[Rfam]
RNA sequence: GGGGAGCAUCUAGAAAUUGGGAUGUUGCCUGAUACAAUCUUCCUAAAUUAAACCUCAAUUUUCAGCUUGUUGUACACGAGCUAGUUCUUCAAGUAUUUGCAUUGAGGGACAUAC
Numbered sequence: 001g002g003g004g005a006g007c008a009u010c011u012a013g014a015a016a017u018u019g020g021g022a023u024g025u026u027g028c029c030u031g032a033u034a035c036a037a038u039c040u041u042c043c044u045a046a047a048u049u050a051a052a053c054c055u056c057a058a059u060u061u062u063c064a065g066c067u068u069g070u071u072g073u074a075c076a077c078g079a080g081c082u083a084g085u086u087c088u089u090c091a092a093g094u095a096u097u098u099g100c101a102u103u104g105a106g107g108g109a110c111a112u113a114c
Stems, first nucleotide, its partner, number of pairs: 001030003005026007055107002065094005072087001074085002
About this RNA: Rfam assigns this 114-nucleotide RNA sequence from Ipomoea nil to the family "Small nucleolar RNA snoR104". Lineage of the source: Eukaryota > Viridiplantae > Tracheophyta > Convolvulaceae > Ipomoea. Pairs were carried over by alignment from the consensus structure, which was predicted with WAR. Its family is annotated with nucleolus and RNA processing in the Gene Ontology. The family has 8 seed sequences and 612 matches in Rfam 15.1. A reference for the family is Marker et al. (2002), "Experimental RNomics: identification of 140 candidates for small non-messenger RNAs in the plant Arabidopsis thaliana", Curr Biol. It is annotated as an H/ACA-box small nucleolar RNA.